[Rfam]
RNA sequence: CACGGACCCGGAUGUUGUUCCGGGUGGCUCCUCCGGCCGCCAAUCCGCCGGAUAAUG
Number, nucleotide and partner (000 for none) at each position: 001c000002a000003c000004g000005g000006a025007c024008c023009c022010g021011g020012a000013u000014g000015u000016u000017g000018u000019u000020c011021c010022g009023g008024g007025u006026g000027g000028c000029u000030c000031c000032u052033c051034c050035g049036g048037c047038c000039g000040c000041c000042a000043a000044u000045c000046c000047g037048c036049c035050g034051g033052a032053u000054a000055a000056u000057g000
RNA: sul1 RNA